[Rfam]
RNA sequence: GAGCAGAGAUGAAUGCAAAUUUGCUCCUGACACCUCUUAUGUUAGCAAUCAAUUUCCGGAUUGCAAUGAUUCCACAAAUGUUAACUGAGCUC
Dot-bracket structure: ((((....................................................................................))))
RNA: Small nucleolar RNA sn2903